[Rfam]
RNA sequence: UGCGGUGCGAGGCCGAGUCCGUGCCGGUCGCACGACCGGACGGAGCCGGGGACCCAACGUUCCAGGGGUGAAUCGGCGCGCCUGAAGGCCGCGCCGUAGGGCUACUUCCAUGCCCGAAUCCGUCAGCUAACCCGGUAGGCGUCAUGGAAGAACAG
Numbered sequence: 001u002g003c004g005g006u007g008c009g010a011g012g013c014c015g016a017g018u019c020c021g022u023g024c025c026g027g028u029c030g031c032a033c034g035a036c037c038g039g040a041c042g043g044a045g046c047c048g049g050g051g052a053c054c055c056a057a058c059g060u061u062c063c064a065g066g067g068g069u070g071a072a073u074c075g076g077c078g079c080g081c082c083u084g085a086a087g088g089c090c091g092c093g094c095c096g097u098a099g100g101g102c103u104a105c106u107u108c109c110a111u112g113c114c115c116g117a118a119u120c121c122g123u124c125a126g127c128u129a130a131c132c133c134g135g136u137a138g139g140c141g142u143c144a145u146g147g148a149a150g151a152a153c154a155g
Stems, first nucleotide, its partner, number of pairs: 012140003018044005045136006055065001066121003074096007099115004
Dot-bracket structure: ...........(((...(((((.................)))))((((((....(.........)(((.....(((((((.........)))))))..((((.........))))...))).........)))))).)))...............
The family of this 155-nucleotide RNA from Actinomadura sp. BRA 177 is "c-di-AMP riboswitch aptamer (ydaO/yuaA leader)".